[Rfam]
The record is a 96-nucleotide sequence from Zafaria cholistanensis, which matches "SAM riboswitch aptamer (S box leader)" in Rfam. Pairs were carried over by alignment from the consensus structure, which is taken from published work. The match comes from Rfam's covariance-model search (48 bits). The organism belongs to Zafaria, within Bacteria.
RNA sequence: AAACCAUCCCGAGCGGCCGAGAGAUCUGGCUCCAUGACGCCGCAGCAACCACGCAGGCCGCGGCCGCGCAGGUGCUUCAGCCAGGACCGAUGGAGC
Numbered sequence: 001a002a003a004c005c006a007u008c009c010c011g012a013g014c015g016g017c018c019g020a021g022a023g024a025u026c027u028g029g030c031u032c033c034a035u036g037a038c039g040c041c042g043c044a045g046c047a048a049c050c051a052c053g054c055a056g057g058c059c060g061c062g063g064c065c066g067c068g069c070a071g072g073u074g075c076u077u078c079a080g081c082c083a084g085g086a087c088c089g090a091u092g093g094a095g096c
Base pairs, nucleotide, nucleotide: 004093005092006091007090008089013043014042015041016040017039021032022031023030026084027083028082029081044076045075046074047073049072050071052068053067054066080088